[Rfam]
RNA: BsrC
Organism: Bacillus sp. AFS040349
RNA sequence: AAUUUUCAAAACAACGAAAGCCCUACCUCUCUUUCGUCCUUACGGCUCCUAGUCCGCGCCAGUGUGAAUUGAUUAACAUCUACUUUU
Numbered sequence: 001a002a003u004u005u006u007c008a009a010a011a012c013a014a015c016g017a018a019a020g021c022c023c024u025a026c027c028u029c030u031c032u033u034u035c036g037u038c039c040u041u042a043c044g045g046c047u048c049c050u051a052g053u054c055c056g057c058g059c060c061a062g063u064g065u066g067a068a069u070u071g072a073u074u075a076a077c078a079u080c081u082a083c084u085u086u087u
Stems, first nucleotide, its partner, number of pairs: 034067003039062002041058001043056003047052001